RNA sequence: GGGUUGGCUGGCAGAGGAAGGGAAUGGUCCAGGAUCAGCUGAACAAGUUCCCAGGUUGUUUUCUGCUUUUUCCUAGAAUGUCAGGUGAUGU
Numbered sequence: 001g002g003g004u005u006g007g008c009u010g011g012c013a014g015a016g017g018a019a020g021g022g023a024a025u026g027g028u029c030c031a032g033g034a035u036c037a038g039c040u041g042a043a044c045a046a047g048u049u050c051c052c053a054g055g056u057u058g059u060u061u062u063c064u065g066c067u068u069u070u071u072c073c074u075a076g077a078a079u080g081u082c083a084g085g086u087g088a089u090g091u
Base pairs, nucleotide, nucleotide: 003089004088005087006086008084009083010082011081012080013079019074020073021072022071023070024069026067027066032061033060034059035058037056039054040053041052
RNA: mir-1178 microRNA precursor family
Organism: Phyllostomus discolor